Source information
Rfam assigns this 81-nucleotide sequence from Ferrimonas sediminicola to the family "antisense RNA of dnaA mRNA". Rfam links the family to the GO term regulation of mRNA stability. The organism belongs to Ferrimonas, within Bacteria. The family's consensus secondary structure was predicted with RNAfold.

RNA sequence: CUUGGCGUUCGGAUUGUUUUUCAGGAUGCCGUUGCCCACGGCGUGCAGCAGGUGGGUUUUACCCAGGCCGGUACCGCCAUA
Number, nucleotide and partner (000 for none) at each position: 001c000002u000003u000004g000005g042006c041007g000008u000009u038010c000011g036012g035013a000014u000015u000016g032017u031018u000019u000020u000021u028022c000023a000024g000025g000026a000027u000028g021029c000030c000031g017032u016033u000034g000035c012036c011037c000038a009039c000040g000041g006042c005043g000044u000045g000046c000047a000048g000049c000050a000051g078052g077053u076054g075055g000056g074057u073058u000059u000060u000061a072062c071063c070064c000065a000066g000067g000068c000069c000070g063071g062072u061073a057074c056075c054076g053077c052078c051079a000080u000081a000